This 133-nucleotide sequence from Ornithorhynchus anatinus belongs to the Rfam family "Small nucleolar RNA SNORA56". Rfam 15.1 lists 153 matches to the family in 125 species. About the family: ACA56 is a member of the H/ACA class of snoRNA that guide the sites of modification of uridines to pseudouridines.
[Rfam]
RNA sequence: AAGCAGGCGGUUAUCCCUCUCUAGCCUGAUCGGGUGGCUCUAGAGGGAGUCAGUCUGCAAAAUCAAAUGGAAGGCCCUGUUUCUGUCCAGCACCACAGUGCUUUGGUGGUGGUUGCAGACCUGCCAUAUAUGG
Numbered sequence: 001a002a003g004c005a006g007g008c009g010g011u012u013a014u015c016c017c018u019c020u021c022u023a024g025c026c027u028g029a030u031c032g033g034g035u036g037g038c039u040c041u042a043g044a045g046g047g048a049g050u051c052a053g054u055c056u057g058c059a060a061a062a063u064c065a066a067a068u069g070g071a072a073g074g075c076c077c078u079g080u081u082u083c084u085g086u087c088c089a090g091c092a093c094c095a096c097a098g099u100g101c102u103u104u105g106g107u108g109g110u111g112g113u114u115g116c117a118g119a120c121c122u123g124c125c126a127u128a129u130a131u132g133g
Stems, first nucleotide, its partner, number of pairs: 003058006020044005025037002068126003072122003077118002085113003091108005098103001
The sequence is in the family's curated seed alignment.